The record is a 104-nucleotide RNA from Saliniradius amylolyticus, which matches "Vibrio RNA AS9" in Rfam. Lineage of the source: Bacteria > Pseudomonadati > Alteromonadales > Alteromonadaceae > Saliniradius. A search with the family's covariance model found it, with a score of 66 bits. For this family Rfam cites "Experimental discovery of sRNAs in Vibrio cholerae by direct cloning, 5S/tRNA depletion and parallel sequencing" (Liu et al., Nucleic Acids Res, 2009). Rfam describes the family as follows. Identified by direct cloning an parallel sequencing experiments with 5S/tRNA depletion. Confirmed by Northern blot.
RNA sequence: ACGGGCACAGCGUUGUUCGGUCAUCGGCAAACACACCAGCCCGCGGGCGAAGGUGACCAUAAAGUUGAUCGCCUCUGGGGUAAUAUGCUCGGCGGCCAUGAUCA
Numbered sequence: 001a002c003g004g005g006c007a008c009a010g011c012g013u014u015g016u017u018c019g020g021u022c023a024u025c026g027g028c029a030a031a032c033a034c035a036c037c038a039g040c041c042c043g044c045g046g047g048c049g050a051a052g053g054u055g056a057c058c059a060u061a062a063a064g065u066u067g068a069u070c071g072c073c074u075c076u077g078g079g080g081u082a083a084u085a086u087g088c089u090c091g092g093c094g095g096c097c098a099u100g101a102u103c104a
Stems, first nucleotide, its partner, number of pairs: 003058002006055003011026002014023002036049001040046002066104005071096002075092003078088001080086001